[Rfam]
About this RNA
Shown here is an 86-nucleotide RNA sequence from Cocos nucifera, a member of the family "Small nucleolar RNA SNORD25". The family's RNA type in Rfam is C/D-box small nucleolar RNA. Taxonomically the source falls in Cocos (Eukaryota, Viridiplantae, commelinids, Cocoseae). The base pairs follow the family's consensus structure, which was predicted with PFOLD.
RNA sequence: GAGAAUGGUGAUGAUUCUACAGACUUGUAAUGAUUAUUUGCGGGGAUGAUCGCAUAAUCAAAGAACAUCUAGGAGACUGAGUUGUC
Numbered sequence: 001g002a003g004a005a006u007g008g009u010g011a012u013g014a015u016u017c018u019a020c021a022g023a024c025u026u027g028u029a030a031u032g033a034u035u036a037u038u039u040g041c042g043g044g045g046a047u048g049a050u051c052g053c054a055u056a057a058u059c060a061a062a063g064a065a066c067a068u069c070u071a072g073g074a075g076a077c078u079g080a081g082u083u084g085u086c
Stems, first nucleotide, its partner, number of pairs: 002085001004083003